[Rfam]
RNA sequence: UACCUAUCCAGAGCGGCCGAGAGACCUGGCUCGACGACGCCGCAGCAACCACCCCCACCGCCCUCGUGCGACGGUUCGGGAACGGUGCUCCCGCCAGGACCGAUGGAUA
Numbered sequence: 001u002a003c004c005u006a007u008c009c010a011g012a013g014c015g016g017c018c019g020a021g022a023g024a025c026c027u028g029g030c031u032c033g034a035c036g037a038c039g040c041c042g043c044a045g046c047a048a049c050c051a052c053c054c055c056c057a058c059c060g061c062c063c064u065c066g067u068g069c070g071a072c073g074g075u076u077c078g079g080g081a082a083c084g085g086u087g088c089u090c091c092c093g094c095c096a097g098g099a100c101c102g103a104u105g106g107a108u109a
Base pairs, nucleotide, nucleotide: 001109002108004106005105006104007103008102013043014042015041016040017039021032022031023030026097027096028095029094044089045088046087047086049085050084052080053079054078093101